Shown here is a 69-nucleotide sequence from Ziziphus jujuba, a member of the family "Plastid-clpP 5UTR RNA". By type it is a cis-regulatory element. Rfam describes the family as follows. Plastid clpP is a non-coding RNA (ncRNA) recognised in plastids. The source organism's lineage runs through Eukaryota, Viridiplantae, Gunneridae, Rosales and Ziziphus jujuba. The literature on the family includes a 2023 paper in Plant Commun by Richter et al., "Retrograde signaling in plants: A critical review focusing on the GUN pathway and beyond". The base pairs follow the family's consensus structure, which was predicted with LocARNA.
[Rfam]
RNA sequence: AAUUUUGUUUGUAGGAACAAAAGGCAGCAAAUCUAAUCCACACCCGAUAAGUAACAACACGCAAUGGUA
Numbered sequence: 001a002a003u004u005u006u007g008u009u010u011g012u013a014g015g016a017a018c019a020a021a022a023g024g025c026a027g028c029a030a031a032u033c034u035a036a037u038c039c040a041c042a043c044c045c046g047a048u049a050a051g052u053a054a055c056a057a058c059a060c061g062c063a064a065u066g067g068u069a
Base pairs, nucleotide, nucleotide: 003022004021006019007018008017009016010015044067045066051060052059
Dot-bracket structure: ..((.(((((....))))).)).....................((.....((......)).....))..